A member of the RNA family "Xanthine riboswitch aptamer (NMT1 RNA)" from Aquabacterium lacunae, 70 nucleotides long. A search with the family's covariance model found it, with a score of 48 bits.

RNA sequence: CGACGGAGUAGAAGCGUUCAGCCUGGUGCACGGCCCCCGUGGCCACAGCAGGUGGGGAAUUGCUCCUUGC
Numbered sequence: 001c002g003a004c005g006g007a008g009u010a011g012a013a014g015c016g017u018u019c020a021g022c023c024u025g026g027u028g029c030a031c032g033g034c035c036c037c038c039g040u041g042g043c044c045a046c047a048g049c050a051g052g053u054g055g056g057g058a059a060u061u062g063c064u065c066c067u068u069g070c
Base pairs, nucleotide, nucleotide: 005066006065007064008063009062010061015055018057019056021053022052023051024050025049027047
Dot-bracket structure: ....((((((....[..((.(((((.(...................).))))).]))...))))))....